[Rfam]
RNA sequence: AGCCGCGCGGUGAGCACAGAGCGAACUAUUCUUUCGCCUUUUACUAAAGAAUACCGUGUGCUCGCCGCAGAUAGCGGCAUACGCUAAUUUUUGGAGGGGUUAUUCCUGUCGGAGUGC
Numbered sequence: 001a002g003c004c005g006c007g008c009g010g011u012g013a014g015c016a017c018a019g020a021g022c023g024a025a026c027u028a029u030u031c032u033u034u035c036g037c038c039u040u041u042u043a044c045u046a047a048a049g050a051a052u053a054c055c056g057u058g059u060g061c062u063c064g065c066c067g068c069a070g071a072u073a074g075c076g077g078c079a080u081a082c083g084c085u086a087a088u089u090u091u092u093g094g095a096g097g098g099g100u101u102a103u104u105c106c107u108g109u110c111g112g113a114g115u116g117c
Base pairs, nucleotide, nucleotide: 003077004076005075006074008067009066010065011064012063013062014061015060016059017058018057027053028052029051030050031049032048033047034046099115100114101113